The record is an 87-nucleotide sequence, which matches "SAM-I/IV (S-adenosyl methionine) riboswitch aptamer" in Rfam. Rfam links the family to the GO terms regulation of gene expression and S-adenosylmethionine metabolic process. Rfam 15.1 lists 567 matches to the family in 508 species. It is one of the family's seed sequences.
[Rfam]
RNA sequence: UAAAUGCAUAGAGAGAGGAAUACCUCAGCAACCUAGUAGCCAACUAAGGUGCUUUUUGAUGUGGUUAAACAACAAAAAUUGGCGUUC
Numbered sequence: 001u002a003a004a005u006g007c008a009u010a011g012a013g014a015g016a017g018g019a020a021u022a023c024c025u026c027a028g029c030a031a032c033c034u035a036g037u038a039g040c041c042a043a044c045u046a047a048g049g050u051g052c053u054u055u056u057u058g059a060u061g062u063g064g065u066u067a068a069a070c071a072a073c074a075a076a077a078a079u080u081g082g083c084g085u086u087c
Stems, first nucleotide, its partner, number of pairs: 006062004015026004027053003032049003035045003041082001064073003
Dot-bracket structure: .....((((.....((((....))))(((..((((((...[.))).))).))).....)))).(((....)))........].....